[Rfam]
RNA sequence: AAUUUAAAUAUCGCUAUACCGUAGACAGUAGGUGCUUUCAUAGGCUUAAUUUUCCUACCGAGGUGUAUUACCAAUAGAAGCAUUUUGCUUGUUGUUGAAUAUACAAACCUCCAUGUCUAAUUGGAGGUUUUUCUAUGACCAC
Numbered sequence: 001a002a003u004u005u006a007a008a009u010a011u012c013g014c015u016a017u018a019c020c021g022u023a024g025a026c027a028g029u030a031g032g033u034g035c036u037u038u039c040a041u042a043g044g045c046u047u048a049a050u051u052u053u054c055c056u057a058c059c060g061a062g063g064u065g066u067a068u069u070a071c072c073a074a075u076a077g078a079a080g081c082a083u084u085u086u087g088c089u090u091g092u093u094g095u096u097g098a099a100u101a102u103a104c105a106a107a108c109c110u111c112c113a114u115g116u117c118u119a120a121u122u123g124g125a126g127g128u129u130u131u132u133c134u135a136u137g138a139c140c141a142c
Stems, first nucleotide, its partner, number of pairs: 028058005034045003108127006
Shown here is a 142-nucleotide sequence from Metabacillus harenarius, a member of the family "Ribosomal protein L10 leader". A search with the family's covariance model found it, with a score of 77 bits. Rfam's curators write: This family is a putative r-protein leader autoregulatory structure found in B. subtilis and other low-GC Gram-positive bacteria. It is located in the 5' untranslated regions of mRNAs encoding ribosomal proteins L10 and L12 (rplJ-rplL). A Rho-independent transcription terminator structure that is probably involved in regulation is included at the 3' end. Gene Ontology term of the family: regulation of gene expression. The family's consensus secondary structure was predicted with CMfinder. The source organism's lineage runs through Bacteria, Bacillati, Caryophanales, Bacillaceae and Metabacillus.